[Rfam]
RNA sequence: CACACAUGAUGUUAUACUAUAUUUGCUACUUCGGACGGGCGCUCGCGCCCGAAUGAGACAUAUUAAAUCACCAAGAUCUCUGAUGUG
Number, nucleotide and partner (000 for none) at each position: 001c087002a086003c085004a084005c000006a000007u000008g000009a000010u000011g000012u000013u000014a000015u000016a000017c000018u000019a000020u000021a000022u000023u000024u000025g000026c000027u000028a000029c000030u000031u000032c000033g000034g000035a000036c000037g000038g000039g000040c000041g000042c000043u000044c000045g000046c000047g000048c000049c000050c000051g000052a000053a000054u000055g000056a000057g000058a000059c000060a000061u000062a000063u000064u000065a000066a000067a000068u000069c000070a000071c000072c000073a000074a000075g000076a000077u000078c000079u000080c000081u000082g000083a000084u004085g003086u002087g001

Rfam assigns this 87-nucleotide RNA from Lachancea thermotolerans to the family "Small nucleolar RNA SNORD24".
NCBI's taxonomy places the organism under Eukaryota, Opisthokonta, Ascomycota, Saccharomycetales, Lachancea thermotolerans.
A search with the family's covariance model found it, with a score of 59 bits.
A reference for the family is Hirose and Steitz (2001), "Position within the host intron is critical for efficient processing of box C/D snoRNAs in mammalian cells", Proc Natl Acad Sci U S A.
The base pairs follow the family's consensus structure, which was predicted with PFOLD.
Rfam 15.1 lists 2,843 matches to the family in 1,188 species.
Its family is annotated with RNA processing and nucleolus in the Gene Ontology.